This 127-nucleotide RNA from Odocoileus virginianus belongs to the Rfam family "Small nucleolar RNA U109". Lineage of the source: Eukaryota > Amniota > Eutheria > Pecora > Odocoileus virginianus. The family's consensus secondary structure was predicted with WAR. The family's RNA type in Rfam is H/ACA-box small nucleolar RNA. A search with the family's covariance model found it, with a score of 71 bits. Gene Ontology terms of the family: nucleolus and RNA processing.
RNA sequence: CUGCACGUGAAUGUCGGCCCCUCAUUCCUCUGCAAGAUGGAAUCUAUGACAUGCUAGAAUAAGAAAGGAGUUCUCAGGGCUGGCAAUGUUACAGUAGCCGUUGAAUAGUACUGUUUCUCCUACAUUU
Numbered sequence: 001c002u003g004c005a006c007g008u009g010a011a012u013g014u015c016g017g018c019c020c021c022u023c024a025u026u027c028c029u030c031u032g033c034a035a036g037a038u039g040g041a042a043u044c045u046a047u048g049a050c051a052u053g054c055u056a057g058a059a060u061a062a063g064a065a066a067g068g069a070g071u072u073c074u075c076a077g078g079g080c081u082g083g084c085a086a087u088g089u090u091a092c093a094g095u096a097g098c099c100g101u102u103g104a105a106u107a108g109u110a111c112u113g114u115u116u117c118u119c120c121u122a123c124a125u126u127u
Base pairs, nucleotide, nucleotide: 003054004053005052007050008049014036017033018032067120068119069118070117079109080108084103085102086101087100088099090097